[Rfam]
RNA: c-di-AMP riboswitch aptamer (ydaO/yuaA leader)
Nucleotides: 152
Base pairs, nucleotide, nucleotide: 007138008137009136010135014037015036038133039132040131041130042129043128048059049058060118061117062116068094069093070092071091097112098111099110100109
Number, partner (000 for none) and nucleotide at each position: 001000a002000g003000a004000c005000c006000c007138c008137g009136u010135c011000g012000a013000a014037c015036u016000g017000c018000u019000a020000c021000c022000g023000c024000u025000c026000a027000c028000g029000c030000g031000g032000u033000g034000g035000a036015a037014g038133a039132c040131c041130g042129g043128g044000g045000a046000c047000c048059c049058a050000u051000c052000g053000u054000u055000c056000c057000c058049u059048g060118g061117g062116g063000u064000g065000a066000a067000u068094c069093u070092c071091g072000c073000c074000u075000g076000g077000c078000c079000c080000a081000u082000g083000c084000g085000c086000c087000g088000c089000c090000g091071c092070g093069a094068g095000u096000a097112g098111g099110g100109c101000u102000g103000u104000c105000u106000c107000c108000g109100g110099c111098c112097c113000g114000a115000a116062c117061c118060c119000g120000u121000c122000a123000g124000c125000u126000a127000a128043c129042u130041c131040g132039g133038u134000a135010g136009a137008c138007g139000g140000c141000g142000a143000g144000g145000g146000a147000g148000a149000a150000c151000g152000g